Shown here is a 291-nucleotide RNA from Vitrella brassicaformis, a member of the family "Nuclear RNase P".
Its family is annotated with tRNA processing, ribonuclease P complex and ribonuclease P activity in the Gene Ontology.
Rfam's curators write: Ribonuclease P (RNase P) is a ubiquitous endoribonuclease, found in archaea, bacteria and eukarya as well as chloroplasts and mitochondria.
The organism belongs to Vitrella, within Eukaryota.
RNA sequence: GUUGAUUUUGAGCGUGCCCGUGUCCGUGCGUUGAGCGAAAGCUCAAGUGUUUUCUGCGGGGGGGAAGGUCUGAGAGGCCGCUGUUUGGCAGAGAUGCAGUCGCACCAGCCUUUGAUGCGACGGCCGCCCACCAGAAAUGGCACCCCACACAUACACACACACGUGUUGUGUGUGUGGCUGAAAGGGGCUGGCUGGCCUGUCGUCUGCAGUGAGUCAAAUGCUCGAAACGCUGCCUGGCCCUCUUUGUCGGAGGGUCAGCAGCGAACUCAAUUCAGACUAGUCCUGCACAAC
Numbered sequence: 001g002u003u004g005a006u007u008u009u010g011a012g013c014g015u016g017c018c019c020g021u022g023u024c025c026g027u028g029c030g031u032u033g034a035g036c037g038a039a040a041g042c043u044c045a046a047g048u049g050u051u052u053u054c055u056g057c058g059g060g061g062g063g064g065a066a067g068g069u070c071u072g073a074g075a076g077g078c079c080g081c082u083g084u085u086u087g088g089c090a091g092a093g094a095u096g097c098a099g100u101c102g103c104a105c106c107a108g109c110c111u112u113u114g115a116u117g118c119g120a121c122g123g124c125c126g127c128c129c130a131c132c133a134g135a136a137a138u139g140g141c142a143c144c145c146c147a148c149a150c151a152u153a154c155a156c157a158c159a160c161a162c163g164u165g166u167u168g169u170g171u172g173u174g175u176g177g178c179u180g181a182a183a184g185g186g187g188c189u190g191g192c193u194g195g196c197c198u199g200u201c202g203u204c205u206g207c208a209g210u211g212a213g214u215c216a217a218a219u220g221c222u223c224g225a226a227a228c229g230c231u232g233c234c235u236g237g238c239c240c241u242c243u244u245u246g247u248c249g250g251a252g253g254g255u256c257a258g259c260a261g262c263g264a265a266c267u268c269a270a271u272u273c274a275g276a277c278u279a280g281u282c283c284u285g286c287a288c289a290a291c
Base pairs, nucleotide, nucleotide: 001291002290003289004288008226009225012222017060018059019058020057031046032045033044034043035042036041070275071274072273073272074271076197077196078195079194086099088097089096090095100120101119102118103117104116123192124191125190126189128187129186143177144176228263229262230261231260232259233258